The record is a 452-nucleotide part of an RNA from Lynx canadensis, which matches "Eukaryotic large subunit ribosomal RNA" in Rfam. The match comes from Rfam's covariance-model search (2192 bits). The source organism's lineage runs through Eukaryota, Chordata, Teleostomi, Theria and Lynx.
[Rfam]
RNA sequence: AAGUUGACAAGUUGGAUCCUUAACUUUGGAAUAAGGGCUGGGUUUUUUGGGCUGGGGUGUGAAGCAGGGCUGGUCAGGCGCAUGGCUAGACAAGACAAUGUCACCCACACACACAUCAGGGGCACCCCCCCAGGACCCUUCUCCACCCCACGCCCACGGCUGCCCCUGAUUUCUCUCCCCCCUCCCUUCCUGGGGUGGAGUGUGGAGAUGAGGGUGGGGCUCCCCUCGGUGCCAGUGGGCCCACGGAUCUGGGCCCCUAGGGGGCCAGUGCCCCAGCUGCAGGGAGUGUCACUGCCUCACCUGGGAAGCCCGGCAUGGUCAGGGACUGACUCCCCCCUCUUCCUGGGGUUCAGAGCCUGCCCACCCUGCCUGUUGCCCCUGUGCCUCGGUUCUGUGUGGCUGCCUCAUUGAACCUCCGGCCUAGCAGCCGACUUAGAACUGGUGCGGACCAG
Numbered sequence: 001a002a003g004u005u006g007a008c009a010a011g012u013u014g015g016a017u018c019c020u021u022a023a024c025u026u027u028g029g030a031a032u033a034a035g036g037g038c039u040g041g042g043u044u045u046u047u048u049g050g051g052c053u054g055g056g057g058u059g060u061g062a063a064g065c066a067g068g069g070c071u072g073g074u075c076a077g078g079c080g081c082a083u084g085g086c087u088a089g090a091c092a093a094g095a096c097a098a099u100g101u102c103a104c105c106c107a108c109a110c111a112c113a114c115a116u117c118a119g120g121g122g123c124a125c126c127c128c129c130c131c132a133g134g135a136c137c138c139u140u141c142u143c144c145a146c147c148c149c150a151c152g153c154c155c156a157c158g159g160c161u162g163c164c165c166c167u168g169a170u171u172u173c174u175c176u177c178c179c180c181c182c183u184c185c186c187u188u189c190c191u192g193g194g195g196u197g198g199a200g201u202g203u204g205g206a207g208a209u210g211a212g213g214g215u216g217g218g219g220c221u222c223c224c225c226u227c228g229g230u231g232c233c234a235g236u237g238g239g240c241c242c243a244c245g246g247a248u249c250u251g252g253g254c255c256c257c258u259a260g261g262g263g264g265c266c267a268g269u270g271c272c273c274c275a276g277c278u279g280c281a282g283g284g285a286g287u288g289u290c291a292c293u294g295c296c297u298c299a300c301c302u303g304g305g306a307a308g309c310c311c312g313g314c315a316u317g318g319u320c321a322g323g324g325a326c327u328g329a330c331u332c333c334c335c336c337c338u339c340u341u342c343c344u345g346g347g348g349u350u351c352a353g354a355g356c357c358u359g360c361c362c363a364c365c366c367u368g369c370c371u372g373u374u375g376c377c378c379c380u381g382u383g384c385c386u387c388g389g390u391u392c393u394g395u396g397u398g399g400c401u402g403c404c405u406c407a408u409u410g411a412a413c414c415u416c417c418g419g420c421c422u423a424g425c426a427g428c429c430g431a432c433u434u435a436g437a438a439c440u441g442g443u444g445c446g447g448a449c450c451a452g
Base pairs, nucleotide, nucleotide: 015039017037018036019035024029041440042439043438044437045436046435049432050429051428052427053426054425441445